Rfam assigns this 114-nucleotide RNA from Hemibagrus wyckioides to the family "Potassium channel RNA editing signal". The family's RNA type in Rfam is cis-regulatory element. From the family's description: This family represents a group of sequences related to the human potassium channel Kv1.1 hairpin element which directs the efficient modification of an adenosine to inosine by an adenosine deaminase acting on RNA (ADAR). The base pairs follow the family's consensus structure, which is taken from published work. The family has 85 seed sequences and 14,095 matches in Rfam 15.1. The match comes from Rfam's covariance-model search (100 bits).
RNA sequence: CUUGGCUAUGGUGACAUGUAUCCUCAGACAACAUCGGGCAUGUUGGUGGGGGCGCUUUGUGCUCUGGCUGGUGUGCUGACCAUCGCCAUGCCUGUGCCUGUGAUUGUCAACAAC
Number, nucleotide and partner (000 for none) at each position: 001c000002u113003u000004g111005g000006c000007u000008a107009u106010g105011g104012u000013g000014a101015c100016a099017u000018g097019u096020a095021u094022c000023c000024u000025c000026a000027g000028a000029c000030a000031a000032c000033a000034u000035c000036g000037g077038g076039c075040a074041u000042g000043u000044u000045g000046g000047u000048g000049g063050g062051g000052g000053c000054g000055c000056u000057u000058u000059g000060u000061g000062c050063u049064c000065u000066g000067g000068c000069u000070g000071g000072u000073g000074u040075g039076c038077u037078g000079a000080c000081c000082a000083u000084c000085g000086c000087c000088a000089u000090g000091c000092c000093u000094g021095u020096g019097c018098c000099u016100g015101u014102g000103a000104u011105u010106g009107u008108c000109a000110a000111c004112a000113a002114c000